[Rfam]
RNA sequence: UAGGUGCUAGAGUUGAUCGCUGGCUGCAGAGAUGCAGCAAGAGGAAAGUCCGGGCUCCGCAGGGCGAUGAGGGUAGCUAACAGCUGCUGAGGGAAACCUUAAGGAAAGUGCCACAGAAAAUAGACCGCCAGUCAUGUAUUGGUAAGGGUGAAAAGGUGGUGUAAGAGACCACCAGUUUCUUAGGAAACUAAGAAAGCUUGGUAAACCCCCUCUGGAGCAAGACGUAGUAGGAGAGGUUAAGGAUUGCCCGUCCAGCUCUCAGGGUAAGUUGCUUGAGCCUAUAAGUGAUUAUAGGUCUAGAUAAAUGAUCACCAAUGACAAAACCCGGCUUAUAUUAGCACCUAUAUU
Number, nucleotide and partner (000 for none) at each position: 001u344002a343003g342004g341005u340006g339007c338008u337009a336010g335011a333012g313013u000014u311015g310016a309017u308018c307019g000020c041021u040022g000023g038024c037025u036026g035027c034028a033029g000030a000031g000032a000033u028034g027035c026036a025037g024038c023039a000040a021041g020042a000043g000044g000045a000046a331047a330048g329049u000050c328051c327052g326053g325054g324055c217056u216057c215058c214059g000060c000061a000062g000063g249064g248065c000066g000067a000068u000069g212070a211071g210072g209073g087074u086075a085076g084077c083078u000079a000080a000081c000082a000083g077084c076085u075086g074087c073088u102089g100090a099091g098092g097093g000094a000095a000096a000097c092098c091099u090100u089101a000102a088103g208104g207105a000106a000107a000108g206109u205110g202111c201112c200113a000114c000115a000116g000117a000118a000119a000120a000121u000122a000123g000124a000125c147126c146127g143128c142129c141130a140131g139132u138133c000134a000135u000136g000137u000138a132139u131140u130141g129142g128143u127144a000145a000146g126147g125148g000149u000150g000151a000152a000153a000154a000155g173156g172157u171158g170159g169160u168161g000162u000163a000164a000165g000166a000167g000168a160169c159170c158171a157172c156173c155174a000175g197176u195177u194178u193179c192180u191181u190182a189183g188184g000185a000186a000187a000188c183189u182190a181191a180192g179193a178194a177195a176196g000197c175198u000199u000200g112201g111202u110203a000204a000205a109206c108207c104208c103209c072210c071211u070212c069213u000214g058215g057216a056217g055218c000219a000220a000221g270222a269223c268224g000225u000226a000227g000228u000229a000230g000231g260232a259233g258234a257235g256236g000237u000238u000239a000240a000241g253242g252243a251244u250245u000246g000247c000248c064249c063250g244251u243252c242253c241254a000255g000256c235257u234258c233259u232260c231261a000262g000263g000264g000265u000266a000267a000268g223269u222270u221271g000272c000273u000274u000275g000276a000277g296278c295279c294280u293281a292282u291283a290284a289285g000286u000287g000288a000289u284290u283291a282292u281293a280294g279295g278296u277297c000298u000299a000300g000301a000302u000303a000304a000305a000306u000307g018308a017309u016310c015311a014312c000313c012314a000315a000316u000317g000318a000319c000320a000321a000322a000323a000324c054325c053326c052327g051328g050329c048330u047331u046332a000333u011334a000335u010336u009337a008338g007339c006340a005341c004342c003343u002344a001345u000346a000347u000348u000
The record is a 348-nucleotide RNA sequence from Propionigenium maris, which matches "Bacterial RNase P class A" in Rfam. Its family is annotated with dimeric ribonuclease P complex, ribonuclease P activity and tRNA processing in the Gene Ontology. The base pairs follow the family's consensus structure, which is taken from published work. The match comes from Rfam's covariance-model search (297 bits).